[Rfam]
RNA sequence: CGUGGAAUUCUACCAAGCUCCGACGGGAUGGCGCUCGUGACUAGGUCCGCCGCCUUGUAUUACACGAGACGUUCAUACCCGUGCGACCCAAGGCGGCCGUACUAGCCACGAGCGCCCUUCCGUCGGAUCUAGGCAGAAUUUCACGA
Numbered sequence: 001c002g003u004g005g006a007a008u009u010c011u012a013c014c015a016a017g018c019u020c021c022g023a024c025g026g027g028a029u030g031g032c033g034c035u036c037g038u039g040a041c042u043a044g045g046u047c048c049g050c051c052g053c054c055u056u057g058u059a060u061u062a063c064a065c066g067a068g069a070c071g072u073u074c075a076u077a078c079c080c081g082u083g084c085g086a087c088c089c090a091a092g093g094c095g096g097c098c099g100u101a102c103u104a105g106c107c108a109c110g111a112g113c114g115c116c117c118u119u120c121c122g123u124c125g126g127a128u129c130u131a132g133g134c135a136g137a138a139u140u141u142c143a144c145g146a
Stems, first nucleotide, its partner, number of pairs: 001145002004142002007139005013133002016130002019127005025121004030116010041105004047099001049097009060086002063083004
RNA: MIR3454 microRNA precursor family